A member of the RNA family "TPP riboswitch aptamer (THI element)" from Actinospica durhamensis, 107 nucleotides long. The match comes from Rfam's covariance-model search (62 bits). Rfam describes the family as follows. Vitamin B(1) in its active form thiamin pyrophosphate (TPP) is an essential coenzyme that is synthesised by coupling of pyrimidine and thiazole moieties in bacteria. The previously detected thiamin-regulatory element, thi box was extended, resulting in a new, highly conserved RNA secondary structure, the THI element, which is widely distributed in eubacteria and also occurs in some archaea. Analysis of operon structures identified a large number of new candidate thiamin-regulated genes, mostly transporters, in various prokaryotic organisms. The THI element is a riboswitch that directly binds to TPP to regulate gene expression through a variety of mechanisms in archaea, bacteria and eukaryotes. through a variety of mechanisms in archaea, bacteria and eukaryotes.
RNA sequence: CCGAACAACCGCGGGAGCUCGGGGCGGAUCCGGGCUGAGAGGGCGAUACGCCGACCGCAUGAACCUGUCCGGGUAAUGCCGGCGUAGGGAGUGUGAGCGCAGCCGUG
Numbered sequence: 001c002c003g004a005a006c007a008a009c010c011g012c013g014g015g016a017g018c019u020c021g022g023g024g025c026g027g028a029u030c031c032g033g034g035c036u037g038a039g040a041g042g043g044c045g046a047u048a049c050g051c052c053g054a055c056c057g058c059a060u061g062a063a064c065c066u067g068u069c070c071g072g073g074u075a076a077u078g079c080c081g082g083c084g085u086a087g088g089g090a091g092u093g094u095g096a097g098c099g100c101a102g103c104c105g106u107g
Base pairs, nucleotide, nucleotide: 006095007094010091011058012057013056014055017035018034019033020032021031022030023029042052043051044050045049064088065087066086067085069082070081071080072079